The record is a 354-nucleotide part of an RNA from an uncultured bacterium, which matches "Bacterial small subunit ribosomal RNA" in Rfam. It is one of the family's seed sequences. Pairs were carried over by alignment from the consensus structure, which is taken from published work.
[Rfam]
RNA sequence: GGCGUAAAGCGCGCGCAGGCGGCUUCCCAAGUCCCUCUUAAAAGUGCGGGGCUUAACCCCGUGAUGGGAAGGAAACUGGGAAGCUGGAGUAUCGGAGAGGAAAGUGGAAUUCCUAGUGUAGCGGUGAAAUGCGUAGAGAUUAGGAAGAACACCGGUGGCGAAGGCGACUUUCUGGACGAAAACUGACGCUGAGGCGCGAAAGCGUGGGGAGCAAACAGGAUUAGAUACCCUGGUAGUCCACGCCGUAAACGAUGGAUACUAGGUGUAGGAGGUAUCGACCCCUCCUGUGCCGGAGUUAACGCAAUAAGUAUCCCGCCUGGGAAGUACGAUCGCAAGAUUAAAACUCAAAGGAAU
Numbered sequence: 001g002g003c004g005u006a007a008a009g010c011g012c013g014c015g016c017a018g019g020c021g022g023c024u025u026c027c028c029a030a031g032u033c034c035c036u037c038u039u040a041a042a043a044g045u046g047c048g049g050g051g052c053u054u055a056a057c058c059c060c061g062u063g064a065u066g067g068g069a070a071g072g073a074a075a076c077u078g079g080g081a082a083g084c085u086g087g088a089g090u091a092u093c094g095g096a097g098a099g100g101a102a103a104g105u106g107g108a109a110u111u112c113c114u115a116g117u118g119u120a121g122c123g124g125u126g127a128a129a130u131g132c133g134u135a136g137a138g139a140u141u142a143g144g145a146a147g148a149a150c151a152c153c154g155g156u157g158g159c160g161a162a163g164g165c166g167a168c169u170u171u172c173u174g175g176a177c178g179a180a181a182a183c184u185g186a187c188g189c190u191g192a193g194g195c196g197c198g199a200a201a202g203c204g205u206g207g208g209g210a211g212c213a214a215a216c217a218g219g220a221u222u223a224g225a226u227a228c229c230c231u232g233g234u235a236g237u238c239c240a241c242g243c244c245g246u247a248a249a250c251g252a253u254g255g256a257u258a259c260u261a262g263g264u265g266u267a268g269g270a271g272g273u274a275u276c277g278a279c280c281c282c283u284c285c286u287g288u289g290c291c292g293g294a295g296u297u298a299a300c301g302c303a304a305u306a307a308g309u310a311u312c313c314c315g316c317c318u319g320g321g322a323a324g325u326a327c328g329a330u331c332g333c334a335a336g337a338u339u340a341a342a343a344c345u346c347a348a349a350g351g352a353a354u
Stems, first nucleotide, its partner, number of pairs: 001317003009314001011197004016191001018190003022084007030077002032073003036069005045063007088184003092179003099173007106150001110146008121132003158165002202243006211237002216232004254313006262291011295302002319346003328339004
A reference for the family is Yusupov et al. (2001), "Crystal structure of the ribosome at 5.5 A resolution", Science.